[Rfam]
RNA sequence: UGAAAGAAACUUCUGUUCAGCCACAGUCCGAGCGUGAUAACAACCGUCGCAGGCAAUGGGAGCAGGUCGCCAAGAGGGGACAGGUGGGAUUCCUAUGG
Dot-bracket structure: ...........(((((((.........................................))))))(((.((....)).)))(((.......))))...
Shown here is a 98-nucleotide RNA sequence from Firmicutes bacterium CAG:102, a member of the family "pemK RNA". Rfam classes the family as a cis-regulatory element. NCBI's taxonomy places the organism under Bacteria, Bacillati, Bacillota.